RNA sequence: AUAAGACAGGAAAUUGUGAAAUUUCCUUAUUAGAAUAGUUUAGUUAAGUCUAGUUUAGUUUUUGUGUUGUGAUACUCCAACCAUUAGAGAAUGGCUGGAGUAUCUUUUUU
Dot-bracket structure: (((((....((((((....))))))...........((.((((......)))).))....)))))......((((((((..(((......)))..)))))))).......
Numbered sequence: 001a002u003a004a005g006a007c008a009g010g011a012a013a014u015u016g017u018g019a020a021a022u023u024u025c026c027u028u029a030u031u032a033g034a035a036u037a038g039u040u041u042a043g044u045u046a047a048g049u050c051u052a053g054u055u056u057a058g059u060u061u062u063u064g065u066g067u068u069g070u071g072a073u074a075c076u077c078c079a080a081c082c083a084u085u086a087g088a089g090a091a092u093g094g095c096u097g098g099a100g101u102a103u104c105u106u107u108u109u110u
Stems, first nucleotide, its partner, number of pairs: 001065005010025006037056002040053004072103008082093003
The family of this 110-nucleotide sequence from Bacteroides sp. CAG:714 is "Bacteroides sRNA BTnc049".
The family's consensus secondary structure is taken from published work.
On this family, see Ryan et al., Nat Commun 2020: "A high-resolution transcriptome map identifies small RNA regulation of metabolism in the gut microbe Bacteroides thetaiotaomicron".